[Rfam]
RNA: Nuclear RNase P
Organism: Dothistroma septosporum
RNA sequence: UCACUAAUGCUGCGUUUCUUUGCUCACACACAGACAAGCUCUGCUUCACUGCAAGUUCGUCACAUACUUGGCAAAUGAGAAAUUCGGAGUAAUCUUCAACUGCACGCUAUCUCUCGUUUUCGGUUCGCGCCAAAAUUUGAGCUCUGGCAUCUGCCCGUGAGGGCCUGCGAUGACACUCAUCGUUGCAUUCGGCAUCAGAAAUUCAGCCUGAUCACUUCCGGGUGAGAGGGUUAUGGGAGUCGGUGCGAAGAUUGUGUGCCUUGUUCGACUGGGCGAUCACUUUAGUGCAAUACGCGGCGUAUCUGAGGCUUCUGCUACCCAUUGGGUGGUGGUGGUGGAUGGUAUCAUUCGAUUCCGAUUACUCUUGUGA
Numbered sequence: 001u002c003a004c005u006a007a008u009g010c011u012g013c014g015u016u017u018c019u020u021u022g023c024u025c026a027c028a029c030a031c032a033g034a035c036a037a038g039c040u041c042u043g044c045u046u047c048a049c050u051g052c053a054a055g056u057u058c059g060u061c062a063c064a065u066a067c068u069u070g071g072c073a074a075a076u077g078a079g080a081a082a083u084u085c086g087g088a089g090u091a092a093u094c095u096u097c098a099a100c101u102g103c104a105c106g107c108u109a110u111c112u113c114u115c116g117u118u119u120u121c122g123g124u125u126c127g128c129g130c131c132a133a134a135a136u137u138u139g140a141g142c143u144c145u146g147g148c149a150u151c152u153g154c155c156c157g158u159g160a161g162g163g164c165c166u167g168c169g170a171u172g173a174c175a176c177u178c179a180u181c182g183u184u185g186c187a188u189u190c191g192g193c194a195u196c197a198g199a200a201a202u203u204c205a206g207c208c209u210g211a212u213c214a215c216u217u218c219c220g221g222g223u224g225a226g227a228g229g230g231u232u233a234u235g236g237g238a239g240u241c242g243g244u245g246c247g248a249a250g251a252u253u254g255u256g257u258g259c260c261u262u263g264u265u266c267g268a269c270u271g272g273g274c275g276a277u278c279a280c281u282u283u284a285g286u287g288c289a290a291u292a293c294g295c296g297g298c299g300u301a302u303c304u305g306a307g308g309c310u311u312c313u314g315c316u317a318c319c320c321a322u323u324g325g326g327u328g329g330u331g332g333u334g335g336u337g338g339a340u341g342g343u344a345u346c347a348u349u350c351g352a353u354u355c356c357g358a359u360u361a362c363u364c365u366u367g368u369g370a
Stems, first nucleotide, its partner, number of pairs: 001370003005367003011297001016292001019075004033061003037057004085357005094250004153164004167183005185246003190242003205232003299345005